[Rfam]
Nucleotides: 037
Base pairs, nucleotide, nucleotide: 001021002020003019004018005017006016007015008014
Number, partner (000 for none) and nucleotide at each position: 001021g002020a003019u004018u005017u006016g007015g008014u009000c010000g011000g012000a013000a014008a015007c016006c017005a018004a019003a020002u021001c022000g023000g024000c025000u026000c027000u028000a029000g030000g031000u032000a033000a034000g035000g036000a037000g